[Rfam]
Nucleotides: 240
Base pairs, nucleotide, nucleotide: 002139003138004137005136006135007134008133010127011126012125013124014123018121019120020119021118022117023116024115025114026092027091028090029089030088031087034084035083036082037081040079041078042077044076047073048072049071050070053067056065057064058063093108094107095106096105097104098103153235154234155233156232157231160228162226163225164224165223172218173217174216175215176214177213178212179211183210184209185208191199
Number, partner (000 for none) and nucleotide at each position: 001000c002139a003138c004137a005136u006135g007134c008133u009000c010127c011126u012125u013124a014123g015000a016000u017000c018121c019120a020119u021118c022117u023116u024115u025114g026092u027091g028090a029089g030088u031087a032000u033000c034084u035083u036082u037081g038000u039000u040079c041078u042077g043000a044076g045000u046000u047073c048072u049071g050070c051000u052000g053067g054000a055000u056065a057064a058063c059000u060000u061000u062000a063058g064057u065056u066000u067053c068000u069000a070050g071049c072048a073047g074000u075000u076044c077042c078041a079040g080000u081037c082036a083035g084034a085000g086000a087031u088030g089029c090028u091027c092026a093108g094107c095106a096105a097104c098103u099000u100000u101000c102000u103098g104097g105096u106095u107094g108093u109000a110000c111000a112000g113000u114025c115024a116023a117022a118021g119020a120019u121018g122000c123014u124013u125012g126011a127010g128000u129000c130000a131000u132000u133008g134007g135006c136005a137004u138003g139002u140000g141000a142000g143000a144000g145000u146000a147000a148000u149000a150000u151000a152000a153235c154234u155233g156232c157231a158000u159000g160228u161000u162226a163225g164224c165223u166000u167000u168000c169000u170000g171000u172218u173217c174216u175215g176214a177213u178212a179211g180000a181000a182000g183210u184209g185208g186000c187000u188000g189000u190000a191199c192000a193000u194000g195000u196000a197000c198000a199191g200000g201000u202000c203000a204000u205000g206000u207000c208185u209184c210183a211179c212178u213177a214176u215175c216174a217173g218172g219000a220000c221000u222000u223165g224164g225163c226162u227000g228160g229000u230000a231157u232156g233155c234154a235153g236000a237000c238000a239000u240000u
This 240-nucleotide RNA from Picathartes gymnocephalus belongs to the Rfam family "Small nucleolar RNA SNORA53". It is annotated as an H/ACA-box small nucleolar RNA. The base pairs follow the family's consensus structure, which was predicted with RNAalifold. About the family: The snoRNA ACA53 belongs to the H/ACA family of pseudouridylation guide snoRNAs. Gene Ontology terms of the family: nucleolus and RNA processing. The organism belongs to Picathartes, within Eukaryota. It scores 211 bits against the family's covariance model.